The family of this 45-nucleotide sequence from Williamwhitmania taraxaci is "Acido-Lenti-1 RNA".
Lineage of the source: Bacteria > Pseudomonadati > Bacteroidota > Williamwhitmaniaceae > Williamwhitmania.
Pairs were carried over by alignment from the consensus structure, which is taken from published work.
A search with the family's covariance model found it, with a score of 40 bits.
RNA sequence: CACAGGGCUGUGCCCUGUGCUUUUACAGGACGGCCUUUCAGGCCU
Numbered sequence: 001c002a003c004a005g006g007g008c009u010g011u012g013c014c015c016u017g018u019g020c021u022u023u024u025a026c027a028g029g030a031c032g033g034c035c036u037u038u039c040a041g042g043c044c045u
Base pairs, nucleotide, nucleotide: 001019002018003017004016005015006014007013008012032044033043034042035041036040